[Rfam]
RNA sequence: AACCCCACGCUAAGCGUGGGGUUCCGUAAAGCUUAAAGCUAUGAGAGAGAAAACCUCCGUUUGCUAAAAUAAAUUUGCGGACUGACAAACUGCAAAAAAGAAGCAAAGGG
Numbered sequence: 001a002a003c004c005c006c007a008c009g010c011u012a013a014g015c016g017u018g019g020g021g022u023u024c025c026g027u028a029a030a031g032c033u034u035a036a037a038g039c040u041a042u043g044a045g046a047g048a049g050a051a052a053a054c055c056u057c058c059g060u061u062u063g064c065u066a067a068a069a070u071a072a073a074u075u076u077g078c079g080g081a082c083u084g085a086c087a088a089a090c091u092g093c094a095a096a097a098a099a100g101a102a103g104c105a106a107a108g109g110g
Stems, first nucleotide, its partner, number of pairs: 001023010028042001030040004057110002060107006074096007

About this RNA:
The family of this 110-nucleotide RNA from Christensenella hongkongensis is "STnc490 Hfq binding RNA". The organism belongs to Christensenella, within Bacteria. Rfam 15.1 lists 285 matches to the family in 122 species. The base pairs follow the family's consensus structure, which was predicted with WAR. The family's RNA type in Rfam is small RNA.